RNA sequence: CCGGCGGGCCCUCUACGGGCGUUUCCUCCCUCGACUCGGGCCGCUCCUCGGAGCGGCCUUUUUCUUGGUCCGGC
Numbered sequence: 001c002c003g004g005c006g007g008g009c010c011c012u013c014u015a016c017g018g019g020c021g022u023u024u025c026c027u028c029c030c031u032c033g034a035c036u037c038g039g040g041c042c043g044c045u046c047c048u049c050g051g052a053g054c055g056g057c058c059u060u061u062u063u064c065u066u067g068g069u070c071c072g073g074c
Stems, first nucleotide, its partner, number of pairs: 008020004038059009
Shown here is a 74-nucleotide RNA sequence from Methylobacterium durans, a member of the family "Makes More Granules Regulator RNA (mmgR)". The match comes from Rfam's covariance-model search (50 bits). The pairing is the family consensus, mapped onto this sequence. By type it is a small RNA.